[Rfam]
Rfam assigns this 100-nucleotide RNA sequence from Treponema sp. Marseille-Q3903 to the family "TD-2 RNA". It is annotated as a small RNA.
RNA sequence: ACGGACAAGGAUGUCUGUGGUUCCACACAGCAGCGAUGUUUUUUACUUCUCAAAAAACUCGCGUCCAAGAAUUGACAAGGGUGUCAAUUCUUGGACAGCG
Numbered sequence: 001a002c003g004g005a006c007a008a009g010g011a012u013g014u015c016u017g018u019g020g021u022u023c024c025a026c027a028c029a030g031c032a033g034c035g036a037u038g039u040u041u042u043u044u045a046c047u048u049c050u051c052a053a054a055a056a057a058c059u060c061g062c063g064u065c066c067a068a069g070a071a072u073u074g075a076c077a078a079g080g081g082u083g084u085c086a087a088u089u090c091u092u093g094g095a096c097a098g099c100g
Stems, first nucleotide, its partner, number of pairs: 001018006034061003038058007063096014
The organism belongs to Treponema, within Bacteria. The family's consensus secondary structure is taken from published work.